[Rfam]
RNA sequence: GUGCCUUAAACUAAUGAGUAAGGAAAAUAUAGAGCUUUGGUAAUGCUUAGCUAUGCUAAAUAAUUAAGCGACCAUAUUUUUGAAGGGGCACAGGUCGUCCUUUAACUGCUUGAACUACUUUUUUGAGCGGCUGAGUGAAGCGAUCUACCCU
Dot-bracket structure: ...(((((..........))))).........((((..(......)..)))).((((.........))))..............((((...(((((((..((.(.(((.(((((.......))))).))).).))....))))))).))))
RNA: U12 minor spliceosomal RNA
Organism: Cotesia typhae